[Rfam]
RNA sequence: UUGCACGAUGCCUCCCGGGCUUCUCUGAGCUUUCGUUAUGACGCGAAUGCCCCGAUGCACGUGCUACAUCGGUGCCGUUCGUGUUGCAGAUUCGUUUCUUUUAUCUUCCACGGCCAAUCUGUGUCAAAGUAUCGGCAAGAUCC
Numbered sequence: 001u002u003g004c005a006c007g008a009u010g011c012c013u014c015c016c017g018g019g020c021u022u023c024u025c026u027g028a029g030c031u032u033u034c035g036u037u038a039u040g041a042c043g044c045g046a047a048u049g050c051c052c053c054g055a056u057g058c059a060c061g062u063g064c065u066a067c068a069u070c071g072g073u074g075c076c077g078u079u080c081g082u083g084u085u086g087c088a089g090a091u092u093c094g095u096u097u098c099u100u101u102u103a104u105c106u107u108c109c110a111c112g113g114c115c116a117a118u119c120u121g122u123g124u125c126a127a128a129g130u131a132u133c134g135g136c137a138a139g140a141u142c143c
Stems, first nucleotide, its partner, number of pairs: 003064005010058002017052004022046002025043001074136004079131001082126002085123006094114003
small nucleolar RNA snoR134: a 143-nucleotide RNA from Arachis hypogaea. Pairs were carried over by alignment from the consensus structure, which was predicted with RNAalifold. The family's RNA type in Rfam is H/ACA-box small nucleolar RNA.